[Rfam]
RNA sequence: AGGUCAUUUCAAAGAGGGUUUGUGGGAAUGUUAAACCAAGAGCUCUUAACGUGGUAACCACAGAGUGAUAUUCUCCACAGUAUGUCGUAGUAACUCAGUAGUGCUAUGUUUUUCUGAGGAGAUGACAAU
Numbered sequence: 001a002g003g004u005c006a007u008u009u010c011a012a013a014g015a016g017g018g019u020u021u022g023u024g025g026g027a028a029u030g031u032u033a034a035a036c037c038a039a040g041a042g043c044u045c046u047u048a049a050c051g052u053g054g055u056a057a058c059c060a061c062a063g064a065g066u067g068a069u070a071u072u073c074u075c076c077a078c079a080g081u082a083u084g085u086c087g088u089a090g091u092a093a094c095u096c097a098g099u100a101g102u103g104c105u106a107u108g109u110u111u112u113u114c115u116g117a118g119g120a121g122a123u124g125a126c127a128a129u
Base pairs, nucleotide, nucleotide: 002059003058004057006055007054014047015046016045017044018043019042020041021040023039026037072122073121074120075119076118079115080114082112087107088106089105090104093102094101095100
This 129-nucleotide sequence from Octodon degus belongs to the Rfam family "Small nucleolar RNA SNORA25".
Pairs were carried over by alignment from the consensus structure, which was predicted with RNAfold.
From the family's description: ACA25 is a member of the H/ACA class of snoRNA that guide the sites of modification of uridines to pseudouridines.
It scores 107 bits against the family's covariance model.
The family's RNA type in Rfam is H/ACA-box small nucleolar RNA.
NCBI's taxonomy places the organism under Eukaryota, Dipnotetrapodomorpha, Tetrapoda, Amniota, Octodon.